Record summary: The record is a 161-nucleotide sequence from Blautia liquoris, which matches "M-box riboswitch aptamer (ykoK leader)" in Rfam. Lineage of the source: Bacteria > Bacillota > Lachnospirales > Lachnospiraceae > Blautia.
RNA sequence: AAUACGUUUCGGUAGGCGAGGCUACCACAGGGAUACGGGUUACUACCGCAAAAUAGUGGAGACACUAUGAGCAGGUAAACAGUCCAUGUCGAAAACAAGGCAUGGAAUAAUGUAUCUUCAUUGCCCUGUGAAGUUAAAGCUUGAACGAUGGCGGAUGAAUG
Numbered sequence: 001a002a003u004a005c006g007u008u009u010c011g012g013u014a015g016g017c018g019a020g021g022c023u024a025c026c027a028c029a030g031g032g033a034u035a036c037g038g039g040u041u042a043c044u045a046c047c048g049c050a051a052a053a054u055a056g057u058g059g060a061g062a063c064a065c066u067a068u069g070a071g072c073a074g075g076u077a078a079a080c081a082g083u084c085c086a087u088g089u090c091g092a093a094a095a096c097a098a099g100g101c102a103u104g105g106a107a108u109a110a111u112g113u114a115u116c117u118u119c120a121u122u123g124c125c126c127u128g129u130g131a132a133g134u135u136a137a138a139g140c141u142u143g144a145a146c147g148a149u150g151g152c153g154g155a156u157g158a159a160u161g
Base pairs, nucleotide, nucleotide: 005157006156007155008154009153010151011146013098015141016140017139020135021134022133026130027129028128029127030126031125032124039116041114042113043112046074048072049071055066056065057064058063083106084105085104088101089100090099
Rfam links the family to the GO terms regulation of gene expression and response to magnesium ion.